TPP riboswitch aptamer (THI element): a 108-nucleotide RNA from Georgenia muralis.
A search with the family's covariance model found it, with a score of 63 bits.
The organism belongs to Georgenia, within Bacteria.

RNA sequence: GGGCAACCCCCGGGGAGCGCCGAACGGCGCUGAGAGUGCGGAGAGUCCGCAGACCCGUUUACCUGAUCCGGUUCGUACCGGCGUAGGGAGCAGGGCACCUGCCCCACG
Numbered sequence: 001g002g003g004c005a006a007c008c009c010c011c012g013g014g015g016a017g018c019g020c021c022g023a024a025c026g027g028c029g030c031u032g033a034g035a036g037u038g039c040g041g042a043g044a045g046u047c048c049g050c051a052g053a054c055c056c057g058u059u060u061a062c063c064u065g066a067u068c069c070g071g072u073u074c075g076u077a078c079c080g081g082c083g084u085a086g087g088g089a090g091c092a093g094g095g096c097a098c099c100u101g102c103c104c105c106a107c108g
Stems, first nucleotide, its partner, number of pairs: 007095003011057004017030005037051005062087004068081004
Dot-bracket structure: ......(((.((((..(((((....)))))......(((((.....)))))..))))....((((..((((......))))..)))).....))).............